[Rfam]
RNA sequence: GGGGCUGCACCGGUUUCGACGUGGGUUCGGACGCGCAGCAGGGCAUGUCGAGGGUCAGAUCACCUCGUAAAUCCAGCUGAAACAAACUAACUGCGAACGACGAACGUUACGCACUCGCCGCUUAAACACCGGUGAGCCUCACAACAGUCGGCCGAUGGGCUGGGCCAGGGGCGCAAGCUCCCGGCUGUGAGGGAAUCCACAUUGGCUGGUCCCUGCCCGGGUGCCUUGGGUGGGGACGAGAAAAUAGGGCACUGGCAACCGGCAUAGCGUGCGCCUGCGCGAUGUCGGGGGCGAGAUCCAAAUCAGAGCGCUAAACAUGUAGAACUGUUCGUAGAAGGCUUGCGGACGCGGGUUCAAUUCCCGCCAGCUCCACCA
Numbered sequence: 001g002g003g004g005c006u007g008c009a010c011c012g013g014u015u016u017c018g019a020c021g022u023g024g025g026u027u028c029g030g031a032c033g034c035g036c037a038g039c040a041g042g043g044c045a046u047g048u049c050g051a052g053g054g055u056c057a058g059a060u061c062a063c064c065u066c067g068u069a070a071a072u073c074c075a076g077c078u079g080a081a082a083c084a085a086a087c088u089a090a091c092u093g094c095g096a097a098c099g100a101c102g103a104a105c106g107u108u109a110c111g112c113a114c115u116c117g118c119c120g121c122u123u124a125a126a127c128a129c130c131g132g133u134g135a136g137c138c139u140c141a142c143a144a145c146a147g148u149c150g151g152c153c154g155a156u157g158g159g160c161u162g163g164g165c166c167a168g169g170g171g172c173g174c175a176a177g178c179u180c181c182c183g184g185c186u187g188u189g190a191g192g193g194a195a196u197c198c199a200c201a202u203u204g205g206c207u208g209g210u211c212c213c214u215g216c217c218c219g220g221g222u223g224c225c226u227u228g229g230g231u232g233g234g235g236a237c238g239a240g241a242a243a244a245u246a247g248g249g250c251a252c253u254g255g256c257a258a259c260c261g262g263c264a265u266a267g268c269g270u271g272c273g274c275c276u277g278c279g280c281g282a283u284g285u286c287g288g289g290g291g292c293g294a295g296a297u298c299c300a301a302a303u304c305a306g307a308g309c310g311c312u313a314a315a316c317a318u319g320u321a322g323a324a325c326u327g328u329u330c331g332u333a334g335a336a337g338g339c340u341u342g343c344g345g346a347c348g349c350g351g352g353u354u355c356a357a358u359u360c361c362c363g364c365c366a367g368c369u370c371c372a373c374c375a
Base pairs, nucleotide, nucleotide: 001371002370003369004368005367006366007365020344021343022342023341024340025339026338027337033332034331035330037329038328039327040326041325044319045318046317047316048315049067050066051065052064053063055080056079057078058077060075114136115135116134117133118132119131120130137192138191139190140189141188142187145162146161147160148159151206152205153204154203155202156201157200209237210236211235212234213233214232215231216230217229219253220252224248255292256291259288260287261286262285263284264283267280268279269278271311272310273309274308277303348364349363350362351361352360
This 375-nucleotide RNA from Ramlibacter sp. Leaf400 belongs to the Rfam family "transfer-messenger RNA". Bacterial tmRNA, also known as 10Sa RNA or SsrA, is named for its dual tRNA and mRNA-like properties. Its role is to liberate the mRNA from a stalled ribosome. To accomplish this part of the tmRNA is used as a reading frame that ends in a translation stop signal. The broken mRNA is replaced in the ribosome by the tmRNA and translation of the tmRNA leads to addition of a proteolysis tag to the incomplete protein enabling recognition by a protease. A search with the family's covariance model found it, with a score of 196 bits. The family's RNA type in Rfam is non-coding RNA gene. Its family is annotated with RNA catabolic process in the Gene Ontology.